[Rfam]
RNA sequence: GAGUUGACCUUUUCGGCAAGGUUAAGGGGCUUGAGCCCCGCAGCCGAAGCGAAAGCGAGUCUUAAAAGGGCGUUUAGUCGUGAGGGUCAGACGCGAAACCGGGUGAUCUACCCUUGGCCAGGCUGAAGGAUGGGUAACACCAUCUGGAGGGCCGCACCAAUAAGCGUUGAAAAGCUUCUGGAUGAGCUGAGGGUAGGGGUGAAAGGCUAAUCAAACCCGGAGAUAGCUCGUA
Numbered sequence: 001g002a003g004u005u006g007a008c009c010u011u012u013u014c015g016g017c018a019a020g021g022u023u024a025a026g027g028g029g030c031u032u033g034a035g036c037c038c039c040g041c042a043g044c045c046g047a048a049g050c051g052a053a054a055g056c057g058a059g060u061c062u063u064a065a066a067a068g069g070g071c072g073u074u075u076a077g078u079c080g081u082g083a084g085g086g087u088c089a090g091a092c093g094c095g096a097a098a099c100c101g102g103g104u105g106a107u108c109u110a111c112c113c114u115u116g117g118c119c120a121g122g123c124u125g126a127a128g129g130a131u132g133g134g135u136a137a138c139a140c141c142a143u144c145u146g147g148a149g150g151g152c153c154g155c156a157c158c159a160a161u162a163a164g165c166g167u168u169g170a171a172a173a174g175c176u177u178c179u180g181g182a183u184g185a186g187c188u189g190a191g192g193g194u195a196g197g198g199g200u201g202a203a204a205g206g207c208u209a210a211u212c213a214a215a216c217c218c219g220g221a222g223a224u225a226g227c228u229c230g231u232a
Stems, first nucleotide, its partner, number of pairs: 005089008014080004020045004026039003049056002059071004092230002095227001099220006108196011119184001121153004128145006157181003162177004198208003